[Rfam]
RNA sequence: UUGAUUGAUUUGAAGACUUCAACUUGUAGACUUGAAGAAUUAGGAAAACUCAACUAGCAGACUUAAAGAAUUUGAAGACAUCAACU
Numbered sequence: 001u002u003g004a005u006u007g008a009u010u011u012g013a014a015g016a017c018u019u020c021a022a023c024u025u026g027u028a029g030a031c032u033u034g035a036a037g038a039a040u041u042a043g044g045a046a047a048a049c050u051c052a053a054c055u056a057g058c059a060g061a062c063u064u065a066a067a068g069a070a071u072u073u074g075a076a077g078a079c080a081u082c083a084a085c086u
Base pairs, nucleotide, nucleotide: 001084002083003082004081005080009076010075011074012073013072014071017068018067019066021064025059026058027057032053033052034051035050
The family of this 86-nucleotide RNA from Solanum lycopersicum is "MIR8024 microRNA precursor family". Taxonomically the source falls in Solanum subgen. Lycopersicon (Eukaryota, Streptophytina, Spermatophyta, Magnoliopsida). It scores 59 bits against the family's covariance model.